[Rfam]
A member of the RNA family "U2 spliceosomal RNA" from Atractosteus spatula, 195 nucleotides long.
Its family is annotated with U2 snRNP, pre-mRNA branch point binding and mRNA branch site recognition in the Gene Ontology.
A reference for the family is Newby and Greenbaum (2001), "A conserved pseudouridine modification in eukaryotic U2 snRNA induces a change in branch-site architecture", RNA.
It is annotated as a spliceosomal small nuclear RNA.
U2 is a small nuclear RNA (snRNA) component of the spliceosome (involved in pre-mRNA splicing).
RNA sequence: UUGUCUUGUAUUGUCAUAAUAAAUGUAAAAAAAAAAAAAAAAUCUGUUCUUAUCAGUUUAAUAUCUGAUACGUCCCCCAUCGGGGGACCACAUAUUAAACGGAUUUUUGGAACAGGGAGCUGGAUCAGGAGCUUGCUCCGUCCUCUCCACGCAUCGGCCCGGUAUUGCAGCGCCUCCGGGAACGGUGCACUACCU
Dot-bracket structure: .(...........................)....................((((((........)))))).(((((((...)))))))...........................((((..((....((((....)))).))..))))..((((((.(((((.............)))))..)))))).......